[Rfam]
RNA: mir-219 microRNA precursor family
RNA sequence: UUUAGCUCUGAUUGUCCAAACGCAAUUCUUGUUUACUUUUUAUAUAUUUCAAGGGUUGUGACUGGGCAUCGUGGCUCGA
Numbered sequence: 001u002u003u004a005g006c007u008c009u010g011a012u013u014g015u016c017c018a019a020a021c022g023c024a025a026u027u028c029u030u031g032u033u034u035a036c037u038u039u040u041u042a043u044a045u046a047u048u049u050c051a052a053g054g055g056u057u058g059u060g061a062c063u064g065g066g067c068a069u070c071g072u073g074g075c076u077c078g079a
Stems, first nucleotide, its partner, number of pairs: 002078001004076004009071004014067005021060011